Background: Rfam assigns this 587-nucleotide part of an RNA from Gracilariopsis chorda to the family "Eukaryotic small subunit ribosomal RNA". The family is grouped with related families in Rfam's "SSU clan". The match comes from Rfam's covariance-model search (1687 bits).
[Rfam]
RNA sequence: UACCUGGUUGAUCCUGCCAGUGGUAUAUGCUUGUCUAUAGGACUAAGCCAUGCAAGUGCAAGUAUGAGUGUAUUAUACAACGAAACUGCGAAUGGCUCGGUAAAACAGCUAUAAUUUCUUCGGUGCUAAAUACUACUCGGAUAACCGUAGUAAUUCUAGAGCUAAUACGUGCCUCCCAAGCGACGCAAGUCGUGGUACAAAUUAGAGAUACAAGCCAAUUUUUUGGUGAUUCUAGAUUUUUUUUCUGAUCGCACUAGUUGCGACGCACCGUUCAAAUUUCUGACCUAUCAACUUUGGAUGGUAAGGUAUUGGCUUACCAUGGUUGUGACGGGUAACGGACCGUGGGUGCGGGAUUCCGGAGAGGGAGCCUGAGAAACGGCUACCACAUCCAAGGAAGGCAGCAGGCGCGCAACUUACCCAAUCCGGACACCGGGAGGUAGUGACAAGAAAUAUCAAUAGAGGGCCCGAUGGGUUUUCUAAUUGGAAUGAGAACAAGGUAAACAGCUUAUCGAGGAGCCAGCAGAGGGCAAGUCUGGUGCCAGCAGCCGCGGUAAUUCCAGCUCUGUAAGCGUAUACCAAAGUUGUUG
Numbered sequence: 001u002a003c004c005u006g007g008u009u010g011a012u013c014c015u016g017c018c019a020g021u022g023g024u025a026u027a028u029g030c031u032u033g034u035c036u037a038u039a040g041g042a043c044u045a046a047g048c049c050a051u052g053c054a055a056g057u058g059c060a061a062g063u064a065u066g067a068g069u070g071u072a073u074u075a076u077a078c079a080a081c082g083a084a085a086c087u088g089c090g091a092a093u094g095g096c097u098c099g100g101u102a103a104a105a106c107a108g109c110u111a112u113a114a115u116u117u118c119u120u121c122g123g124u125g126c127u128a129a130a131u132a133c134u135a136c137u138c139g140g141a142u143a144a145c146c147g148u149a150g151u152a153a154u155u156c157u158a159g160a161g162c163u164a165a166u167a168c169g170u171g172c173c174u175c176c177c178a179a180g181c182g183a184c185g186c187a188a189g190u191c192g193u194g195g196u197a198c199a200a201a202u203u204a205g206a207g208a209u210a211c212a213a214g215c216c217a218a219u220u221u222u223u224u225g226g227u228g229a230u231u232c233u234a235g236a237u238u239u240u241u242u243u244u245c246u247g248a249u250c251g252c253a254c255u256a257g258u259u260g261c262g263a264c265g266c267a268c269c270g271u272u273c274a275a276a277u278u279u280c281u282g283a284c285c286u287a288u289c290a291a292c293u294u295u296g297g298a299u300g301g302u303a304a305g306g307u308a309u310u311g312g313c314u315u316a317c318c319a320u321g322g323u324u325g326u327g328a329c330g331g332g333u334a335a336c337g338g339a340c341c342g343u344g345g346g347u348g349c350g351g352g353a354u355u356c357c358g359g360a361g362a363g364g365g366a367g368c369c370u371g372a373g374a375a376a377c378g379g380c381u382a383c384c385a386c387a388u389c390c391a392a393g394g395a396a397g398g399c400a401g402c403a404g405g406c407g408c409g410c411a412a413c414u415u416a417c418c419c420a421a422u423c424c425g426g427a428c429a430c431c432g433g434g435a436g437g438u439a440g441u442g443a444c445a446a447g448a449a450a451u452a453u454c455a456a457u458a459g460a461g462g463g464c465c466c467g468a469u470g471g472g473u474u475u476u477c478u479a480a481u482u483g484g485a486a487u488g489a490g491a492a493c494a495a496g497g498u499a500a501a502c503a504g505c506u507u508a509u510c511g512a513g514g515a516g517c518c519a520g521c522a523g524a525g526g527g528c529a530a531g532u533c534u535g536g537u538g539c540c541a542g543c544a545g546c547c548g549c550g551g552u553a554a555u556u557c558c559a560g561c562u563c564u565g566u567a568a569g570c571g572u573a574u575a576c577c578a579a580a581g582u583u584g585u586u587g
Stems, first nucleotide, its partner, number of pairs: 004020005022577010034448003040441001041408001047406003051403003056089002061087003068081002096361003106282003111277002115275002121270004136171001138169002145161001148158003180193002199239005214227004249263005284332003291323003298320008336358004340351004363384002366381003386397001388395002414439001416438003422434005454483003457479010490510002492507001494506001520566006533560004542549002